The family of this 101-nucleotide RNA from Bacillus sp. B1-b2 is "TPP riboswitch aptamer (THI element)".
RNA sequence: GAUAUCCACUAGGGGAGCCUUAUUUGGCUGAGACAAGAAUUCUUGGACCCUUUGAACCUGAUCUAGUUCACACUAGCGUAGGAAAGUGGAGUCGGCGCAUA
Numbered sequence: 001g002a003u004a005u006c007c008a009c010u011a012g013g014g015g016a017g018c019c020u021u022a023u024u025u026g027g028c029u030g031a032g033a034c035a036a037g038a039a040u041u042c043u044u045g046g047a048c049c050c051u052u053u054g055a056a057c058c059u060g061a062u063c064u065a066g067u068u069c070a071c072a073c074u075a076g077c078g079u080a081g082g083a084a085a086g087u088g089g090a091g092u093c094g095g096c097g098c099a100u101a
Base pairs, nucleotide, nucleotide: 006089007088008087009086010085011051012050013049014048017028018027019026035044036043037042057082058081059080060079063076064075065074066073

The base pairs follow the family's consensus structure, which is taken from published work. The source organism's lineage runs through Bacteria, Bacillati, Bacillota, Caryophanales and Bacillus. It scores 80 bits against the family's covariance model.